[Rfam]
Shown here is a 75-nucleotide RNA sequence from Providencia heimbachae, a member of the family "MicA sRNA". It scores 55 bits against the family's covariance model. The family's consensus secondary structure was predicted with WAR.
RNA sequence: GAAAGACGCGCAAUUUUGUUAUCAUCCCUAAUUCUCUAAGAUAUUUUUUGUUUGGCCACUUAGUGUGGCCAUUUU
Numbered sequence: 001g002a003a004a005g006a007c008g009c010g011c012a013a014u015u016u017u018g019u020u021a022u023c024a025u026c027c028c029u030a031a032u033u034c035u036c037u038a039a040g041a042u043a044u045u046u047u048u049u050g051u052u053u054g055g056c057c058a059c060u061u062a063g064u065g066u067g068g069c070c071a072u073u074u075u
Base pairs, nucleotide, nucleotide: 024042025041026040029038030037054070055069056068057067058066059065